[Rfam]
RNA sequence: UGUUAAAAAAUUCAUCCAUUUCUUCUAUUAAAAAUUAGCGUAGUUGAUGGAAUAACCAGACAGUUACACAUAACAUGUCGCGUGUACCUUAUGCUGACUUAUAGUGGCCAAUUUUCAAUAGUAGAAUUGGAUGAAAUUUAUAACA
Numbered sequence: 001u002g003u004u005a006a007a008a009a010a011u012u013c014a015u016c017c018a019u020u021u022c023u024u025c026u027a028u029u030a031a032a033a034a035u036u037a038g039c040g041u042a043g044u045u046g047a048u049g050g051a052a053u054a055a056c057c058a059g060a061c062a063g064u065u066a067c068a069c070a071u072a073a074c075a076u077g078u079c080g081c082g083u084g085u086a087c088c089u090u091a092u093g094c095u096g097a098c099u100u101a102u103a104g105u106g107g108c109c110a111a112u113u114u115u116c117a118a119u120a121g122u123a124g125a126a127u128u129g130g131a132u133g134a135a136a137u138u139u140a141u142a143a144c145a
Stems, first nucleotide, its partner, number of pairs: 002144004007139003011135006018128001020126004025121002028118002031115003
The family of this 145-nucleotide RNA from Gossypium hirsutum is "MIR7502 microRNA precursor family".
Lineage of the source: Eukaryota > Viridiplantae > Embryophyta > Mesangiospermae > Gossypium.
Pairs were carried over by alignment from the consensus structure, which was predicted with RNAalifold.
The match comes from Rfam's covariance-model search (104 bits).